[Rfam]
RNA: mir-58 microRNA precursor family
RNA sequence: UGCCCUACUCUUCGCAUCUCAUCACUUCGUCCGCCAAUAUAAGGAUGAGAUCGUUCAGUACGGCAAU
Number, nucleotide and partner (000 for none) at each position: 001u065002g064003c063004c062005c000006u060007a059008c058009u057010c000011u000012u000013c053014g052015c000016a051017u050018c049019u048020c047021a046022u045023c044024a000025c043026u042027u041028c000029g000030u000031c000032c000033g000034c000035c000036a000037a000038u000039a000040u000041a027042a026043g025044g023045a022046u021047g020048a019049g018050a017051u016052c014053g013054u000055u000056c000057a009058g008059u007060a006061c000062g004063g003064c002065a001066a000067u000